[Rfam]
RNA sequence: UUCGAUCCCAUCCCAAUGCCCGGCAGGAGCGGGGGACCCAAGGAAGUACGCCGGUCCCGCGACGCAGGACGGCUCGGGGUGAAGCCGCGUGAGAACGCGGCCGGACAUCUCCAGUCCGAACCCGACAGCUCACCUCGCAGGCGACGGAGAGGAAUC
Numbered sequence: 001u002u003c004g005a006u007c008c009c010a011u012c013c014c015a016a017u018g019c020c021c022g023g024c025a026g027g028a029g030c031g032g033g034g035g036a037c038c039c040a041a042g043g044a045a046g047u048a049c050g051c052c053g054g055u056c057c058c059g060c061g062a063c064g065c066a067g068g069a070c071g072g073c074u075c076g077g078g079g080u081g082a083a084g085c086c087g088c089g090u091g092a093g094a095a096c097g098c099g100g101c102c103g104g105a106c107a108u109c110u111c112c113a114g115u116c117c118g119a120a121c122c123c124g125a126c127a128g129c130u131c132a133c134c135u136c137g138c139a140g141g142c143g144a145c146g147g148a149g150a151g152g153a154a155u156c
Stems, first nucleotide, its partner, number of pairs: 011143001013141002019027002029138006039076001077123003085100004103117004
RNA: c-di-AMP riboswitch aptamer (ydaO/yuaA leader)